[Rfam]
RNA sequence: AUAUUUGGUUGUAGGACGCAACCAAGUAAAAAUAAAGAAAAGUCCACUGAGA
Numbered sequence: 001a002u003a004u005u006u007g008g009u010u011g012u013a014g015g016a017c018g019c020a021a022c023c024a025a026g027u028a029a030a031a032a033u034a035a036a037g038a039a040a041a042g043u044c045c046a047c048u049g050a051g052a
Stems, first nucleotide, its partner, number of pairs: 006024006014045004